Shown here is a 73-nucleotide RNA from Kordia sp. SMS9, a member of the family "tRNA". The source organism's lineage runs through Bacteria, Pseudomonadati, Bacteroidota, Flavobacteriaceae and Kordia. It is annotated as a transfer RNA. The match comes from Rfam's covariance-model search (57 bits).
Nucleotides: 073
Base pairs, nucleotide, nucleotide: 001072002071003070004069005068006067007066010025011024012023027043028042029041030040031039049065050064051063052062053061
Number, partner (000 for none) and nucleotide at each position: 001072g002071c003070a004069g005068a006067g007066g008000u009000g010025g011024c012023g013000g014000a015000a016000u017000g018000g019000c020000a021000u022000a023012c024011g025010c026000a027043g028042c029041u030040g031039u032000c033000u034000u035000a036000g037000a038000a039031g040030c041029a042028g043027u044000u045000u046000u047000u048000u049065g050064a051063g052062a053061g054000u055000u056000c057000g058000a059000a060000u061053c062052u063051c064050u065049c066007u067006c068005u069004c070003u071002g072001u073000a